A member of the RNA family "MIR7504 microRNA precursor family" from Gossypium harknessii, 125 nucleotides long. It scores 93 bits against the family's covariance model. NCBI's taxonomy places the organism under Eukaryota, Streptophytina, Malvaceae, Malvoideae, Gossypium.
[Rfam]
RNA sequence: AAUGAGAGAAUGACAAAUCAGAUUUUUUUUUCCUGAUUUUUAACUUUUUCCUCUUGAAAAAUUUCAAAUCCACCUAAAAAUACUAAAAAUUAGGAGAAAAAAAUCUGAUUUACUAUUAUCCCAUU
Numbered sequence: 001a002a003u004g005a006g007a008g009a010a011u012g013a014c015a016a017a018u019c020a021g022a023u024u025u026u027u028u029u030u031u032c033c034u035g036a037u038u039u040u041u042a043a044c045u046u047u048u049u050c051c052u053c054u055u056g057a058a059a060a061a062u063u064u065c066a067a068a069u070c071c072a073c074c075u076a077a078a079a080a081u082a083c084u085a086a087a088a089a090u091u092a093g094g095a096g097a098a099a100a101a102a103a104u105c106u107g108a109u110u111u112a113c114u115a116u117u118a119u120c121c122c123a124u125u
Base pairs, nucleotide, nucleotide: 001125002124003123004122006120007119009117010116011115012114015111016110017109018108019107020106021105022104023102024101025100026099027098030096031095032094033093034092035091036090037089038088039087040086042084046080047079048078049077